The family of this 112-nucleotide RNA sequence from Glycine max is "MIR1520 microRNA precursor family".
RNA sequence: AACAUUGACUACCACGUGUCACGUUCUAAUUGAACGUUGAUUCUAUAGACUAUGAAAAUGUAUUGUUGUUGUCAACGUCCAAUCAGAACGUGACAUGUGACAGUCAUCGUCC
Numbered sequence: 001a002a003c004a005u006u007g008a009c010u011a012c013c014a015c016g017u018g019u020c021a022c023g024u025u026c027u028a029a030u031u032g033a034a035c036g037u038u039g040a041u042u043c044u045a046u047a048g049a050c051u052a053u054g055a056a057a058a059u060g061u062a063u064u065g066u067u068g069u070u071g072u073c074a075a076c077g078u079c080c081a082a083u084c085a086g087a088a089c090g091u092g093a094c095a096u097g098u099g100a101c102a103g104u105c106a107u108c109g110u111c112c
Base pairs, nucleotide, nucleotide: 013099014098016096017095020092021091022090024088025087026086027085029083030082031081
Dot-bracket structure: ............((.((..(((.((((.(((.................................................))).)))).)))..)).)).............
Record summary
Its family is annotated with RISC complex and miRNA-mediated post-transcriptional gene silencing in the Gene Ontology. It scores 85 bits against the family's covariance model. Its Rfam clan is "MIR1520 microRNA precursor clan". Taxonomically the source falls in Glycine subgen. Soja (Eukaryota, Spermatophyta, eudicotyledons, Gunneridae).